[Rfam]
Record summary:
Shown here is a 138-nucleotide sequence from Phaethon lepturus, a member of the family "Small nucleolar RNA SNORA15". It scores 74 bits against the family's covariance model. The literature on the family includes a 2001 paper in EMBO J by Huttenhofer et al., "RNomics: an experimental approach that identifies 201 candidates for novel, small, non-messenger RNAs in mouse". Lineage of the source: Eukaryota > Eumetazoa > Craniata > Teleostomi > Phaethon. Rfam describes the family as follows. ACA15 is a member of the H/ACA class of snoRNA that guide the sites of modification of uridines to pseudouridines. It is annotated as an H/ACA-box small nucleolar RNA.

RNA sequence: GCAUGGACGAAUUCUGCAGUAGCUUUCCUCAGUAGCUAAUGCAGUCAGACACUAUGCCAGAGUAAAUUCCUUUUUCACCCUCUGAUUGGUAUGCUUUUUUUAUAUGGGAAUGGGCAUGCCCUUGGAAGUGGAAUACAU
Numbered sequence: 001g002c003a004u005g006g007a008c009g010a011a012u013u014c015u016g017c018a019g020u021a022g023c024u025u026u027c028c029u030c031a032g033u034a035g036c037u038a039a040u041g042c043a044g045u046c047a048g049a050c051a052c053u054a055u056g057c058c059a060g061a062g063u064a065a066a067u068u069c070c071u072u073u074u075u076c077a078c079c080c081u082c083u084g085a086u087u088g089g090u091a092u093g094c095u096u097u098u099u100u101u102a103u104a105u106g107g108g109a110a111u112g113g114g115c116a117u118g119c120c121c122u123u124g125g126a127a128g129u130g131g132a133a134u135a136c137a138u
Stems, first nucleotide, its partner, number of pairs: 001057006014044005070131002073128004085123001088120009